Rfam assigns this 108-nucleotide RNA from Brassica napus to the family "mir-166 microRNA precursor family". From the family's description: This family represents the plant microRNA (miRNA) precursor mir-166.
[Rfam]
Nucleotides: 108
Stems, first nucleotide, its partner, number of pairs: 001108003005104003009100005016093006024085003
Number, partner (000 for none) and nucleotide at each position: 001108g002107u003106u004000c005104a006103g007102g008000u009100g010099g011098a012097u013096g014000a015000u016093g017092c018091u019090u020089g021088g022000c023000u024085c025084g026083a027000g028000a029000c030000c031000a032000u033000u034000a035000a036000a037000u038000a039000u040000g041000a042000u043000c044000a045000u046000u047000g048000u049000g050000a051000u052000g053000u054000u055000g056000a057000u058000a059000a060000u061000g062000a063000u064000g065000a066000u067000g068000a069000u070000a071000a072000u073000g074000a075000a076000a077000a078000u079000g080000a081000u082000g083026u084025c085024g086000g087000a088021c089020c090019a091018g092017g093016c094000u095000u096013c097012a098011u099010u100009c101000c102007c103006c104005u105000c106003a107002a108001c